Description:
A member of the RNA family "TPP riboswitch aptamer (THI element)" from Staphylococcus gallinarum, 110 nucleotides long. Lineage of the source: Bacteria > Bacillati > Bacillota > Caryophanales > Staphylococcus.
[Rfam]
RNA sequence: AGUAACCACUGGAAGUGCCUUUAAUAAAGGCUGAGACCGAUGUAGUGACGGAGGGAUUCCUUGAACCUGAUCCAGUUUAUACUGGCGUAGGAAAGUGGCGUUAUAAACAA
Numbered sequence: 001a002g003u004a005a006c007c008a009c010u011g012g013a014a015g016u017g018c019c020u021u022u023a024a025u026a027a028a029g030g031c032u033g034a035g036a037c038c039g040a041u042g043u044a045g046u047g048a049c050g051g052a053g054g055g056a057u058u059c060c061u062u063g064a065a066c067c068u069g070a071u072c073c074a075g076u077u078u079a080u081a082c083u084g085g086c087g088u089a090g091g092a093a094a095g096u097g098g099c100g101u102u103a104u105a106a107a108c109a110a
Base pairs, nucleotide, nucleotide: 006098007097008096009095010094011060012059013058014057016054017031018030019029020028021027038053041050042049066091067090068089069088072085073084074083075082